[Rfam]
RNA sequence: UGAUGGUGUACAAAAGCUAAAGUCGCGACGUCCUGUCGCAACGCCCUCGUGACUUACAUCCUGUAGG
Number, nucleotide and partner (000 for none) at each position: 001u000002g000003a000004u000005g000006g000007u000008g000009u000010a000011c049012a000013a047014a000015a000016g044017c043018u000019a000020a000021a000022g000023u000024c000025g039026c038027g037028a036029c035030g000031u000032c000033c000034u000035g029036u028037c027038g026039c025040a000041a000042c000043g017044c016045c000046c000047u013048c000049g011050u000051g000052a000053c067054u066055u065056a064057c063058a000059u000060c000061c000062u000063g057064u056065a055066g054067g053
The family of this 67-nucleotide RNA sequence from Lederbergia galactosidilytica is "Bacillaceae-1 RNA". The match comes from Rfam's covariance-model search (55 bits).